Shown here is a 61-nucleotide RNA sequence from Python bivittatus, a member of the family "Selenocysteine insertion sequence 1". The incorporation of selenocysteine into a protein sequence is directed by an in-frame UGA codon (usually a stop codon) within the coding region of the mRNA. Selenoprotein mRNAs contain a conserved secondary structure in the 3' UTR that is required for the distinction of UGA stop from UGA selenocysteine. The selenocysteine insertion sequence (SECIS) is around 60 nt in length and adopts a hairpin structure which is sufficiently well-defined and conserved to act as a computational screen for selenoprotein genes.
[Rfam]
RNA sequence: UGGUGUUUAUGACGUGGCUAGAUUAAAGCCUUCAGGAUGUCUAGCUGCUGAUGUUGCCGUA
Numbered sequence: 001u002g003g004u005g006u007u008u009a010u011g012a013c014g015u016g017g018c019u020a021g022a023u024u025a026a027a028g029c030c031u032u033c034a035g036g037a038u039g040u041c042u043a044g045c046u047g048c049u050g051a052u053g054u055u056g057c058c059g060u061a
Base pairs, nucleotide, nucleotide: 001061002060005057014048015047016046017045018044019043020042021041022040023039029036030035
Background:
The base pairs follow the family's consensus structure, which is taken from published work. Its family is annotated with selenocysteine incorporation in the Gene Ontology. The match comes from Rfam's covariance-model search (38 bits).